RNA sequence: CUGUCAGGGGAUCGCCAUCCGUCAGCGCGUUGCGCCCACGGAUGCGUUUUGC
Numbered sequence: 001c002u003g004u005c006a007g008g009g010g011a012u013c014g015c016c017a018u019c020c021g022u023c024a025g026c027g028c029g030u031u032g033c034g035c036c037c038a039c040g041g042a043u044g045c046g047u048u049u050u051g052c
Stems, first nucleotide, its partner, number of pairs: 016044007025035004
ffh sRNA: a 52-nucleotide RNA from Albidovulum aquaemixtae. It is annotated as a small RNA. The base pairs follow the family's consensus structure, which is taken from published work. It scores 64 bits against the family's covariance model. NCBI's taxonomy places the organism under Bacteria, Pseudomonadati, Alphaproteobacteria, Rhodobacterales, Albidovulum.